[Rfam]
A member of the RNA family "Purine riboswitch aptamer" from Streptococcus iniae, 96 nucleotides long.
RNA sequence: AACAAUUAAAUAGUGAUUACUUAUUUAUGCUGUGAAUAGGCACAGCGUCUCUACAAGACACCGCAAUGUCUAACAAUAAGUGAGCUUUUUGAGCUU
Dot-bracket structure: .................((((((((...((((((......)))))).........(((((......)))))...))))))))..............
Numbered sequence: 001a002a003c004a005a006u007u008a009a010a011u012a013g014u015g016a017u018u019a020c021u022u023a024u025u026u027a028u029g030c031u032g033u034g035a036a037u038a039g040g041c042a043c044a045g046c047g048u049c050u051c052u053a054c055a056a057g058a059c060a061c062c063g064c065a066a067u068g069u070c071u072a073a074c075a076a077u078a079a080g081u082g083a084g085c086u087u088u089u090u091g092a093g094c095u096u
Stems, first nucleotide, its partner, number of pairs: 018082008029046006056071005